[Rfam]
The record is a 95-nucleotide RNA sequence from Lederbergia galactosidilytica, which matches "Bacillaceae-1 RNA" in Rfam. It scores 43 bits against the family's covariance model. Rfam classes the family as a small RNA. Pairs were carried over by alignment from the consensus structure, which is taken from published work. The organism belongs to Lederbergia, within Bacteria.
RNA sequence: UAAAAAGGUUCAAAGGCGAAAUACGCGAUGUCUUGUCGCUUCAUCUACAGUACAUCCUGUAAGUCGCAACGCCUUUGUGACCAGCAUCCUGUUGA
Numbered sequence: 001u002a003a004a005a006a007g008g009u010u011c012a013a014a015g016g017c018g019a020a021a022u023a024c025g026c027g028a029u030g031u032c033u034u035g036u037c038g039c040u041u042c043a044u045c046u047a048c049a050g051u052a053c054a055u056c057c058u059g060u061a062a063g064u065c066g067c068a069a070c071g072c073c074u075u076u077g078u079g080a081c082c083a084g085c086a087u088c089c090u091g092u093u094g095a
Stems, first nucleotide, its partner, number of pairs: 011077007025067005082094004